The record is a 219-nucleotide RNA sequence from Salmonella enterica, which matches "Gammaproteobacterial sRNA STnc100" in Rfam.
[Rfam]
RNA sequence: CCAUGUAAACCACAGUGUUAUUAUGCAGGUGUUGCGGUGAAUCCCGUUAGCACGGGGCAAAUUGAUCAUCUACUUUUGUUAAUCAACGUUGCAGCAGACAUGAGCGCCGCGAGUCAUGGCUGAUCAACCAAAGGCUCACCGGGUAGCGAUCGGCACUGCAGCACCUACUCUACCCAUUACUUAAAUCAAAGGCUACUUCGGUAGCCUUUUCUUUUUCCA
Numbered sequence: 001c002c003a004u005g006u007a008a009a010c011c012a013c014a015g016u017g018u019u020a021u022u023a024u025g026c027a028g029g030u031g032u033u034g035c036g037g038u039g040a041a042u043c044c045c046g047u048u049a050g051c052a053c054g055g056g057g058c059a060a061a062u063u064g065a066u067c068a069u070c071u072a073c074u075u076u077u078g079u080u081a082a083u084c085a086a087c088g089u090u091g092c093a094g095c096a097g098a099c100a101u102g103a104g105c106g107c108c109g110c111g112a113g114u115c116a117u118g119g120c121u122g123a124u125c126a127a128c129c130a131a132a133g134g135c136u137c138a139c140c141g142g143g144u145a146g147c148g149a150u151c152g153g154c155a156c157u158g159c160a161g162c163a164c165c166u167a168c169u170c171u172a173c174c175c176a177u178u179a180c181u182u183a184a185a186u187c188a189a190a191g192g193c194u195a196c197u198u199c200g201g202u203a204g205c206c207u208u209u210u211c212u213u214u215u216u217c218c219a
Stems, first nucleotide, its partner, number of pairs: 016167002034159006045057001047055002065101002104110002111137004117131001119129001139153004178219001188209008
Overview:
Taxonomically the source falls in Salmonella enterica subsp. enterica serovar Typhimurium (Bacteria, Pseudomonadati, Pseudomonadota, Salmonella enterica subsp. enterica).